[Rfam]
This 219-nucleotide sequence from Cystobacter ferrugineus belongs to the Rfam family "Group II catalytic intron D1-D4-6". Group II introns are found in rRNA, tRNA and mRNA of organelles in fungi, plants and protists, and also in mRNA in bacteria.
RNA sequence: UCAACCCCUGCCCGGUAAAGGAGGCCACCAGCCGGAAGCGAGUCUUGCGUGGUGUCGGGGCAACCCGAACCGCGAAGCGUAGACAGCGAGUGUGCGGGCCGCGUGAUUGAGCCUCGAAAGUUACUCUCUCGCGAGAGCCGACGCAGUUGAACGAUGCGGAAGGCAGUACCCAAGGGCCGCGAAGGCCUGGCUCCUGGGUCUCGCCGGGGUCGAAGAGCG
Numbered sequence: 001u002c003a004a005c006c007c008c009u010g011c012c013c014g015g016u017a018a019a020g021g022a023g024g025c026c027a028c029c030a031g032c033c034g035g036a037a038g039c040g041a042g043u044c045u046u047g048c049g050u051g052g053u054g055u056c057g058g059g060g061c062a063a064c065c066c067g068a069a070c071c072g073c074g075a076a077g078c079g080u081a082g083a084c085a086g087c088g089a090g091u092g093u094g095c096g097g098g099c100c101g102c103g104u105g106a107u108u109g110a111g112c113c114u115c116g117a118a119a120g121u122u123a124c125u126c127u128c129u130c131g132c133g134a135g136a137g138c139c140g141a142c143g144c145a146g147u148u149g150a151a152c153g154a155u156g157c158g159g160a161a162g163g164c165a166g167u168a169c170c171c172a173a174g175g176g177c178c179g180c181g182a183a184g185g186c187c188u189g190g191c192u193c194c195u196g197g198g199u200c201u202c203g204c205c206g207g208g209g210u211c212g213a214a215g216a217g218c219g
Base pairs, nucleotide, nucleotide: 012035013034014033015032016031020029021028022188023187024186025185038087039086042084043083044082045081046079047078048074049073050072051071052070055068056067057066058065059064108213109211111210112209113208114207115206116205131204132203133202134201135200136199137164138163139162142158143157144156145155169198170197171196172195174193175192176191177190178189
Overview
It scores 154 bits against the family's covariance model. Pairs were carried over by alignment from the consensus structure. Rfam links the family to the GO term Group II intron splicing.